[Rfam]
RNA sequence: ACAGUUGAUAGAGGCGCGGGAACGAUAAGUACUUUUCAGAGGGACACCGUUGAAGGAAAGGAAAGGCCAACCGCCGAAGUGGUCCGCUGGGUACAGGGGGCUGCUGGGAUGCCGGCUAACAGCGGGUAUACUGUCGCCAUUAUUUGGUGGAGCGCUAUCGGUAAU
Numbered sequence: 001a002c003a004g005u006u007g008a009u010a011g012a013g014g015c016g017c018g019g020g021a022a023c024g025a026u027a028a029g030u031a032c033u034u035u036u037c038a039g040a041g042g043g044a045c046a047c048c049g050u051u052g053a054a055g056g057a058a059a060g061g062a063a064a065g066g067c068c069a070a071c072c073g074c075c076g077a078a079g080u081g082g083u084c085c086g087c088u089g090g091g092u093a094c095a096g097g098g099g100g101c102u103g104c105u106g107g108g109a110u111g112c113c114g115g116c117u118a119a120c121a122g123c124g125g126g127u128a129u130a131c132u133g134u135c136g137c138c139a140u141u142a143u144u145u146g147g148u149g150g151a152g153c154g155c156u157a158u159c160g161g162u163a164a165u
Base pairs, nucleotide, nucleotide: 006160007159008158009157010156011155016074017073018072019071024067032060033059034058035057036056037055078105079104080103081102082101083100084099085098087096088095089094106132107131109129110128111127112126113125115123116122134150135149136148137147138146139145

Source information:
Rfam assigns this 165-nucleotide sequence from Acidaminococcus intestini to the family "Lysine riboswitch aptamer". A search with the family's covariance model found it, with a score of 92 bits. Lineage of the source: Bacteria > Bacillati > Negativicutes > Acidaminococcales > Acidaminococcus intestini.